Rfam assigns this 113-nucleotide sequence from Hartmannibacter diazotrophicus to the family "Alphaproteobacterial ar14". Lineage of the source: Bacteria > Pseudomonadati > Alphaproteobacteria > Hyphomicrobiales > Hartmannibacter. The base pairs follow the family's consensus structure. The family has 118 seed sequences and 784 matches in Rfam 15.1. By type it is a small RNA. About the family: Smr14C2 was renamed NfeR1 (Nodule Formation Efficiency RNA) highly expressed in salt stress and during the symbiotic interaction on legume roots.
[Rfam]
RNA sequence: CCUCGUAAGUCGUGUCGGACCUCCUCCCCUGACACGACGGAUCUCCACGGAACCUCCUCCCUCCGUGGUGUCUGAUACGCCCACCGGAUCUCCUCCCCCGGUGGGCGUUUUUU
Numbered sequence: 001c002c003u004c005g006u007a008a009g010u011c012g013u014g015u016c017g018g019a020c021c022u023c024c025u026c027c028c029c030u031g032a033c034a035c036g037a038c039g040g041a042u043c044u045c046c047a048c049g050g051a052a053c054c055u056c057c058u059c060c061c062u063c064c065g066u067g068g069u070g071u072c073u074g075a076u077a078c079g080c081c082c083a084c085c086g087g088a089u090c091u092c093c094u095c096c097c098c099c100g101g102u103g104g105g106c107g108u109u110u111u112u113u
Stems, first nucleotide, its partner, number of pairs: 009038001011036006045068006077108011